[Rfam]
RNA sequence: CCUCUGGAAAGCAGGCCGUACGGCCUCGCCGAAGGUGAAAGUCCGGCAAAAACCGGGCGAAGCUCUCAGGCAUCCAUGACAGAGG
Numbered sequence: 001c002c003u004c005u006g007g008a009a010a011g012c013a014g015g016c017c018g019u020a021c022g023g024c025c026u027c028g029c030c031g032a033a034g035g036u037g038a039a040a041g042u043c044c045g046g047c048a049a050a051a052a053c054c055g056g057g058c059g060a061a062g063c064u065c066u067c068a069g070g071c072a073u074c075c076a077u078g079a080c081a082g083a084g085g
Stems, first nucleotide, its partner, number of pairs: 001085006013026004028071003031067002035065001037063001041058005
Background:
A member of the RNA family "Glycine riboswitch aptamer" from Streptosporangium saharense, 85 nucleotides long. Gene Ontology term of the family: glycine biosynthetic process. NCBI's taxonomy places the organism under Bacteria, Bacillati, Actinomycetes, Streptosporangiaceae, Streptosporangium.